Shown here is a 52-nucleotide RNA from Jiella endophytica, a member of the family "ffh sRNA". It is annotated as a small RNA. For this family Rfam cites "Identification of candidate structured RNAs in the marine organism 'Candidatus Pelagibacter ubique'" (Meyer et al., BMC Genomics, 2009). The organism belongs to Jiella, within Bacteria.
RNA sequence: CCGCCCGGAGGUCACCAUCCCCCAGCGAGUUUCGCCCGGGGAUGCGUUUCUG
Numbered sequence: 001c002c003g004c005c006c007g008g009a010g011g012u013c014a015c016c017a018u019c020c021c022c023c024a025g026c027g028a029g030u031u032u033c034g035c036c037c038g039g040g041g042a043u044g045c046g047u048u049u050c051u052g
Stems, first nucleotide, its partner, number of pairs: 016044007025035004